[Rfam]
RNA sequence: CUCUUAUCAAGAGCAGGUGGAGGGACUAGCCCGAUGAAACCCGGCAACCGGCACUCAGUCGAACGACUCGCAGUGCACGGUGCUAAAUCUUGCAGAAACGUUGUUUCUGAGAGAUGAGAG
Number, nucleotide and partner (000 for none) at each position: 001c120002u119003c118004u117005u116006a115007u114008c113009a000010a000011g000012a000013g042014c000015a000016g041017g040018u039019g000020g000021a000022g032023g031024g030025a000026c092027u000028a090029g089030c024031c023032c022033g000034a000035u000036g000037a000038a000039a018040c017041c016042c013043g084044g083045c082046a081047a000048c080049c079050g000051g076052c075053a074054c073055u000056c000057a000058g000059u000060c000061g000062a000063a000064c000065g000066a000067c000068u000069c000070g000071c000072a000073g054074u053075g052076c051077a000078c000079g049080g048081u046082g045083c044084u043085a000086a000087a000088u112089c029090u028091u000092g026093c109094a108095g107096a106097a105098a104099c000100g000101u000102u000103g000104u098105u097106u096107c095108u094109g093110a000111g000112a088113g008114a007115u006116g005117a004118g003119a002120g001
Annotation
The record is a 120-nucleotide RNA sequence from Xylanibacillus composti, which matches "SAM riboswitch aptamer (S box leader)" in Rfam. A search with the family's covariance model found it, with a score of 84 bits. Lineage of the source: Bacteria > Bacillota > Bacilli > Paenibacillaceae > Xylanibacillus. The base pairs follow the family's consensus structure, which is taken from published work.